[Rfam]
RNA sequence: AGAAGACCUCCCGUAAAUCAAGCCGUUUCACGCAAACGCAGGUUGUAAAAAAGCGGAAUGACGUGUGAACACAUCAUCCCGC
Dot-bracket structure: ....(.(((............((........))......))).)........((((..(((.((......)).)))..))))
Pseudomonas sRNA P31: an 82-nucleotide sequence from Pseudomonas indica. For this family Rfam cites "Identification of 17 Pseudomonas aeruginosa sRNAs and prediction of sRNA-encoding genes in 10 diverse pathogens using the bioinformatic tool sRNAPredict2" (Livny et al., Nucleic Acids Res, 2006). By type it is a small RNA. Taxonomically the source falls in Pseudomonas (Bacteria, Pseudomonadati, Gammaproteobacteria, Pseudomonadaceae).